[Rfam]
RNA sequence: GGCAAUUGAAUAAGGCUUUGGAGUGGUCGUUCGCCCCCUUGCAUGUUUUUGCUAACGAAAGGGGGUGAGGCCUUGACAGUAUUUGAAACGCUAGUUGUCACGUUUGCAGCAGCAAACCUACUCGUUGCCAUACUGUCGUAUAAGAAAGACAAAUAACCACUCCUAAGCCCGGGAAGCUAGAGUGGUUAUUGGAAUCACUUAGGCGAACGCCCCUUUAGGGCAUUCAAUUGCCGCUGGCCUCGGUGUUCGCGCACCAGG
Dot-bracket structure: (((((.(((.(..(.(((.((((.(((...(((.(((((.....................))))))))......(((((((......(((..........)))........(((...........)))..)))))))..................))).)))).))).........(((....................))).....)((((.....))))).))).)))))......((.(((((....))))).))